[Rfam]
RNA sequence: GCCGGUCCUCGGUAGUGGUCUUCGGCCCGUCCGCUUCGGGACGUGCCGGAGGCUUCGAUCGAUGGCCGGC
Numbered sequence: 001g002c003c004g005g006u007c008c009u010c011g012g013u014a015g016u017g018g019u020c021u022u023c024g025g026c027c028c029g030u031c032c033g034c035u036u037c038g039g040g041a042c043g044u045g046c047c048g049g050a051g052g053c054u055u056c057g058a059u060c061g062a063u064g065g066c067c068g069g070c
Base pairs, nucleotide, nucleotide: 001070002069003068004067005066006065007064009062010061011060012059013058017054018053019052020051021050022049023048024047025046026045028043029042030041031040032039